[Rfam]
RNA: Insect-Specific Flavivirus 3' UTR repeats Ra
RNA sequence: GCUCCCGUAAGGAAAGCGCAAGCUUUGAGCAUUGACAACGCUCCGGCCCCA
Numbered sequence: 001g002c003u004c005c006c007g008u009a010a011g012g013a014a015a016g017c018g019c020a021a022g023c024u025u026u027g028a029g030c031a032u033u034g035a036c037a038a039c040g041c042u043c044c045g046g047c048c049c050c051a
Stems, first nucleotide, its partner, number of pairs: 005046003013026005027043004032038001